[Rfam]
RNA sequence: AUAAAAAAUAGAGGUGCAACAAUUAUCAGUAAUUAGUUGGAGGUUUGACAAAACCUGUGAAGACUAGUGAAAGGAAUUUUUGCCGAAACAAAAAACUGUCAUCUUUUUGUUGGGUCUUAGGUUGAAUAAGCCGAGAACUGUCGCUUAUCUUUAAGCGUUGCGCUAUCUUACUG
Number, nucleotide and partner (000 for none) at each position: 001a000002u000003a000004a000005a000006a168007a000008a166009u165010a164011g163012a000013g000014g000015u000016g083017c082018a081019a080020c000021a078022a077023u076024u075025a000026u000027c000028a000029g000030u000031a000032a068033u067034u066035a065036g064037u063038u062039g000040g000041a000042g000043g000044u000045u000046u000047g000048a000049c000050a000051a000052a000053a000054c000055c000056u000057g000058u000059g000060a000061a000062g038063a037064c036065u035066a034067g033068u032069g000070a000071a000072a000073g000074g000075a024076a023077u022078u021079u000080u019081u018082g017083c016084c000085g000086a000087a111088a110089c109090a108091a107092a106093a105094a104095a000096c000097u000098g000099u000100c000101a000102u000103c000104u094105u093106u092107u091108u090109g089110u088111u087112g139113g138114g000115u136116c135117u134118u133119a000120g132121g131122u130123u129124g000125a000126a000127u000128a000129a123130g122131c121132c120133g118134a117135g116136a115137a000138c113139u112140g000141u000142c157143g156144c155145u154146u153147a152148u000149c000150u000151u000152u147153a146154a145155g144156c143157g142158u000159u000160g000161c000162g000163c011164u010165a009166u008167c000168u006169u000170a000171c000172u000173g000
RNA: Lysine riboswitch aptamer
Organism: Carnobacterium divergens